[Rfam]
RNA sequence: UCCACUUCUGUCAAUGAUGCAGAUAGAAUAUAGUAUGAGAUUAUGAUGAUUAUCACAAAUUCUCAUUCGUCACUACCUCUGAGACAGAAAUGGA
Numbered sequence: 001u002c003c004a005c006u007u008c009u010g011u012c013a014a015u016g017a018u019g020c021a022g023a024u025a026g027a028a029u030a031u032a033g034u035a036u037g038a039g040a041u042u043a044u045g046a047u048g049a050u051u052a053u054c055a056c057a058a059a060u061u062c063u064c065a066u067u068c069g070u071c072a073c074u075a076c077c078u079c080u081g082a083g084a085c086a087g088a089a090a091u092g093g094a
Stems, first nucleotide, its partner, number of pairs: 001094004006089007
This 94-nucleotide RNA sequence from Strongylocentrotus purpuratus belongs to the Rfam family "Small nucleolar RNA SNORD70".
The organism belongs to Strongylocentrotus, within Eukaryota.
About the family: snoRNA HBII-234 belongs to the C/D family of snoRNAs.
Rfam classes the family as a C/D-box small nucleolar RNA.
On this family, see Huttenhofer et al., EMBO J 2001: "RNomics: an experimental approach that identifies 201 candidates for novel, small, non-messenger RNAs in mouse".